[Rfam]
RNA sequence: UGCGGGACGCCGAAGUCGGGUCUCGCGAUGAACCACUCGCUGCAAUUCAGGAGACUACCCAUGAGC
Number, nucleotide and partner (000 for none) at each position: 001u027002g026003c025004g024005g023006g022007a021008c020009g000010c019011c018012g017013a000014a000015g000016u000017c012018g011019g010020g008021u007022c006023u005024c004025g003026c002027g001028a000029u000030g000031a000032a000033c000034c000035a000036c053037u052038c051039g000040c050041u049042g048043c000044a000045a000046u000047u000048c042049a041050g040051g038052a037053g036054a000055c000056u000057a000058c000059c000060c000061a000062u000063g000064a000065g000066c000